[Rfam]
RNA: SAM riboswitch aptamer (S box leader)
Organism: Bacillus sp. THAF10
RNA sequence: CUCUUAUCAAGAGCAGGUGGAGGGACUGGCCCUAUGAAACCCGGCAACCGACUUUUUCAAGCACGGUGCUAAUUCUUGCAGAAAUUUUUCUGACAGAUAAGAG
Numbered sequence: 001c002u003c004u005u006a007u008c009a010a011g012a013g014c015a016g017g018u019g020g021a022g023g024g025a026c027u028g029g030c031c032c033u034a035u036g037a038a039a040c041c042c043g044g045c046a047a048c049c050g051a052c053u054u055u056u057u058c059a060a061g062c063a064c065g066g067u068g069c070u071a072a073u074u075c076u077u078g079c080a081g082a083a084a085u086u087u088u089u090c091u092g093a094c095a096g097a098u099a100a101g102a103g
Base pairs, nucleotide, nucleotide: 001103002102003101004100005099006098007097008096013042016041017040018039022032023031024030026078028076029075043070044069045068046067048066049065050062053059074095079092080091081090082089083088